Record summary:
This 326-nucleotide RNA sequence from Flavobacteriaceae bacterium UJ101 belongs to the Rfam family "Bacterial RNase P class A". The source organism's lineage runs through Bacteria, Pseudomonadati, Bacteroidota, Flavobacteriales and Flavobacteriaceae. The family's RNA type in Rfam is ribozyme.
RNA sequence: AUUGUAAAUCGUCUUGUCGCUUCGAAUUUAUUUCGGAGAGGAAAGUCCGGACACCACAGAGUAACAUAGCGGGUAACACCCGUCAUUUCGAACUUGUUUCGGGAUAGGACUAGUGCAACAGAAAGGAUGUACAGUUAGGCUGUAGUGAAAUCAGGUAAACUCUAUGCGGUGCAAUGCCAUGUAUACCAACGUUCGAGGGUUACUCGCCCAAAGUUGGAGGGUAGGCAGUUUUGAUUUCGAUAGUAAUGUCGGAGCUAGAUAAAUGACAAGAAAAGGGGUUUAUUUUUUCCUCUUUACAGAAUCCGGCUUAUAGAUUUAUAUUUUUU
Number, nucleotide and partner (000 for none) at each position: 001a322002u000003u320004g319005u318006a317007a316008a315009u314010c313011g311012u271013c270014u269015u268016g267017u266018c265019g000020c038021u037022u036023c035024g034025a033026a032027u000028u000029u000030a000031u000032u026033u025034c024035g023036g022037a021038g020039a000040g000041g000042a000043a309044a308045g307046u000047c306048c305049g304050g303051a302052c171053a170054c169055c168056a000057c000058a000059g205060a204061g203062u202063a000064a000065c166066a165067u164068a163069g083070c082071g081072g080073g079074u000075a000076a000077c000078a000079c073080c072081c071082g070083u069084c107085a105086u104087u103088u102089c101090g100091a099092a098093c000094u000095u000096g000097u000098u092099u091100c090101g089102g088103g087104a086105u085106a000107g084108g162109a161110c000111u000112a000113g160114u159115g156116c155117a000118a000119c000120a000121g000122a000123a000124a000125g000126g000127a000128u000129g000130u144131a143132c142133a141134g140135u139136u000137a000138g000139g135140c134141u133142g132143u131144a130145g000146u000147g000148a000149a000150a000151u000152c000153a000154g000155g116156u115157a000158a000159a114160c113161u109162c108163u068164a067165u066166g065167c000168g055169g054170u053171g052172c000173a000174a000175u227176g226177c225178c224179a000180u000181g000182u000183a000184u000185a000186c217187c216188a215189a214190c213191g000192u000193u000194c000195g000196a000197g209198g208199g207200u206201u000202a062203c061204u060205c059206g200207c199208c198209c197210a000211a000212a000213g190214u189215u188216g187217g186218a000219g000220g000221g000222u000223a000224g178225g177226c176227a175228g000229u000230u000231u000232u000233g000234a000235u254236u253237u252238c251239g250240a249241u248242a247243g000244u000245a000246a000247u242248g241249u240250c239251g238252g237253a236254g235255c000256u000257a000258g000259a000260u000261a000262a000263a000264u000265g018266a017267c016268a015269a014270g013271a012272a000273a000274a000275g000276g000277g000278g000279u000280u000281u000282a000283u000284u000285u000286u000287u000288u000289c000290c000291u000292c000293u000294u000295u000296a000297c000298a000299g000300a000301a000302u051303c050304c049305g048306g047307c045308u044309u043310a000311u011312a000313g010314a009315u008316u007317u006318a005319u004320a003321u000322u001323u000324u000325u000326u000